[Rfam]
RNA sequence: GUGAAUCUAGUAAGAAUUGAACCUAUGAAUUUGCCAAUUAUGAGCUGGGUGCUUUAACCAUUCAUCCAUGGA
Numbered sequence: 001g002u003g004a005a006u007c008u009a010g011u012a013a014g015a016a017u018u019g020a021a022c023c024u025a026u027g028a029a030u031u032u033g034c035c036a037a038u039u040a041u042g043a044g045c046u047g048g049g050u051g052c053u054u055u056a057a058c059c060a061u062u063c064a065u066c067c068a069u070g071g072a
Stems, first nucleotide, its partner, number of pairs: 006072003010026003014022001040069003044066001046064006
Overview
A member of the RNA family "Plastid-ycf2 5UTR RNA" from Vitis vinifera, 72 nucleotides long. It is annotated as a cis-regulatory element. The source organism's lineage runs through Eukaryota, Streptophyta, Gunneridae, rosids and Vitis. It scores 72 bits against the family's covariance model. From the family's description: Plastid ycf2 is a non-coding RNA (ncRNA) recognised in plastids. It was found in the prime untranslated region (5UTR) of ycf2 genes, it presents a tRNA-like motif which suggests it can be involved in mRNA maturation, particularly involved in defining the precise 5' end of the transcript.